The record is a 157-nucleotide RNA from Pelotomaculum isophthalicicum, which matches "c-di-AMP riboswitch aptamer (ydaO/yuaA leader)" in Rfam.
RNA sequence: GCUAUAUCUUUGCCGAAUCCCAGAAAAUUUGUCAACUGGGUACGGGGGAACCAUUCAUGGGGUGAAUCCCAAAUUCUCUUAGAUAAUGGUGAACUUGGGUAGGGUUUCUUUCACCGAACCCGUCAGCUAACCUCGGAGGCAACAAAAGAAAGGGGAA
Numbered sequence: 001g002c003u004a005u006a007u008c009u010u011u012g013c014c015g016a017a018u019c020c021c022a023g024a025a026a027a028u029u030u031g032u033c034a035a036c037u038g039g040g041u042a043c044g045g046g047g048g049a050a051c052c053a054u055u056c057a058u059g060g061g062g063u064g065a066a067u068c069c070c071a072a073a074u075u076c077u078c079u080u081a082g083a084u085a086a087u088g089g090u091g092a093a094c095u096u097g098g099g100u101a102g103g104g105u106u107u108c109u110u111u112c113a114c115c116g117a118a119c120c121c122g123u124c125a126g127c128u129a130a131c132c133u134c135g136g137a138g139g140c141a142a143c144a145a146a147a148g149a150a151a152g153g154g155g156a157a
Base pairs, nucleotide, nucleotide: 011141012140013139014138019040020039021038022037023036043135044134045133046132047131052059053058060121061120062119068099069098070097071096102115103114
From the family's description: This family represents a conserved RNA structure found upstream of the ydaO and yuaA genes in Bacillus subtilis and related genes in other bacteria. The source organism's lineage runs through Bacteria, Bacillati, Clostridia, Pelotomaculum and Pelotomaculum isophthalicicum.